RNA: speF leader
RNA sequence: CGCUGGUCCUCCAAAGACCAGCACCGAAGAGGCUUGUCCUUCAUUGCCGGGCGUGCGGGGUCUCCCCAAGCGACGGUUACCAGGGUCCGGACGUUUCGUUCGGUGAUGUGCGGCGUUUCCAACGCGUCGCGGAUCGCUCGACCGACUC
Numbered sequence: 001c002g003c004u005g006g007u008c009c010u011c012c013a014a015a016g017a018c019c020a021g022c023a024c025c026g027a028a029g030a031g032g033c034u035u036g037u038c039c040u041u042c043a044u045u046g047c048c049g050g051g052c053g054u055g056c057g058g059g060g061u062c063u064c065c066c067c068a069a070g071c072g073a074c075g076g077u078u079a080c081c082a083g084g085g086u087c088c089g090g091a092c093g094u095u096u097c098g099u100u101c102g103g104u105g106a107u108g109u110g111c112g113g114c115g116u117u118u119c120c121a122a123c124g125c126g127u128c129g130c131g132g133a134u135c136g137c138u139c140g141a142c143c144g145a146c147u148c
Stems, first nucleotide, its partner, number of pairs: 002022007031048003055127003075088002096110001100106001